[Rfam]
RNA sequence: GCUACCGGUCGUGACUGGCGAGGGUGGACGUAACCACCGGGGAGCGGCUGCAGGAUCCCUUUGCACGCACCGCACGCCUGGGUGCCGGGA
Numbered sequence: 001g002c003u004a005c006c007g008g009u010c011g012u013g014a015c016u017g018g019c020g021a022g023g024g025u026g027g028a029c030g031u032a033a034c035c036a037c038c039g040g041g042g043a044g045c046g047g048c049u050g051c052a053g054g055a056u057c058c059c060u061u062u063g064c065a066c067g068c069a070c071c072g073c074a075c076g077c078c079u080g081g082g083u084g085c086c087g088g089g090a
Stems, first nucleotide, its partner, number of pairs: 003053001006050007015041002017078004024037004067085005